[Rfam]
RNA sequence: UAAAUUAAUAGGCAAAUCAAGGGAAAUCUUGAGACGCAAAGCUAUAGGGACUAAGGUUUUAACUAAGUCAGCCAGUUGCCAAA
Numbered sequence: 001u002a003a004a005u006u007a008a009u010a011g012g013c014a015a016a017u018c019a020a021g022g023g024a025a026a027u028c029u030u031g032a033g034a035c036g037c038a039a040a041g042c043u044a045u046a047g048g049g050a051c052u053a054a055g056g057u058u059u060u061a062a063c064u065a066a067g068u069c070a071g072c073c074a075g076u077u078g079c080c081a082a083a
Base pairs, nucleotide, nucleotide: 012037013036017032018031019030020029021028022027040077041076042075043074047073048072049069050068051067056063057062
Dot-bracket structure: ...........((...((((((....))))))...))..((((...(((((....((....))...)))..))))))......
About this RNA:
This 83-nucleotide sequence from Clostridium sartagoforme belongs to the Rfam family "c-di-GMP-I riboswitch aptamer". A search with the family's covariance model found it, with a score of 78 bits. GEMM was predicted in a large-scale screen for bacterial structured RNA regulatory elements.